[Rfam]
RNA sequence: AGAGUGUUAUGAUGUUGGGGGAUUUCCUCCGAGUCUAGCUCGUUGCAACUCUCUGGUAGUUUUACCAGAGA
Numbered sequence: 001a002g003a004g005u006g007u008u009a010u011g012a013u014g015u016u017g018g019g020g021g022a023u024u025u026c027c028u029c030c031g032a033g034u035c036u037a038g039c040u041c042g043u044u045g046c047a048a049c050u051c052u053c054u055g056g057u058a059g060u061u062u063u064a065c066c067a068g069a070g071a
Stems, first nucleotide, its partner, number of pairs: 002041004011035003017030005050071009